[Rfam]
RNA sequence: CAGCGCGGAGGCAACUGGCGCUGAACGUGGGCAGACCACGGGGAAGCCUCCGGGAAUACACCUGAUCGCGCGCCUGGGUCGAACGU
Dot-bracket structure: ...(.(((((((..(([[[[[.....((((.....))))..))..))))))).)........(((((..]]]]]..))))).....
Overview: A member of the RNA family "ZMP/ZTP riboswitch aptamer (pfl RNA motif)" from Deinococcus koreensis, 86 nucleotides long. The match comes from Rfam's covariance-model search (54 bits). The family's consensus secondary structure is taken from published work. NCBI's taxonomy places the organism under Bacteria, Deinococcota, Deinococci, Deinococcaceae, Deinococcus.